[Rfam]
RNA: Burkholderia sRNA Bp2_Cand287_SIPHT
Organism: Caballeronia sp. SBC1
RNA sequence: AAAAAGCCCGCCUCUGCGUCAGCAUGAGCGGGCUCGGUGCGGAAAAGCCUGUAGCGUCGCCGGUGCGUGAUCCAGAUUCGCCACCGGUUCGCUUUAGCUGUUUCGGGUUCUGACUCAAGCUAAAGAUCUAGCCGUUCAUCAACACCCGCGUCCGCAAGCUGAUCUCAAAUCGACGCAAACCCAAUGCUAUCACGCCUGUCACGCGC
Numbered sequence: 001a002a003a004a005a006g007c008c009c010g011c012c013u014c015u016g017c018g019u020c021a022g023c024a025u026g027a028g029c030g031g032g033c034u035c036g037g038u039g040c041g042g043a044a045a046a047g048c049c050u051g052u053a054g055c056g057u058c059g060c061c062g063g064u065g066c067g068u069g070a071u072c073c074a075g076a077u078u079c080g081c082c083a084c085c086g087g088u089u090c091g092c093u094u095u096a097g098c099u100g101u102u103u104c105g106g107g108u109u110c111u112g113a114c115u116c117a118a119g120c121u122a123a124a125g126a127u128c129u130a131g132c133c134g135u136u137c138a139u140c141a142a143c144a145c146c147c148g149c150g151u152c153c154g155c156a157a158g159c160u161g162a163u164c165u166c167a168a169a170u171c172g173a174c175g176c177a178a179a180c181c182c183a184a185u186g187c188u189a190u191c192a193c194g195c196c197u198g199u200c201a202c203g204c205g206c
Stems, first nucleotide, its partner, number of pairs: 005034007015024003038177004046093003053089002057083001059081002062079001094162006105147003148155002194206002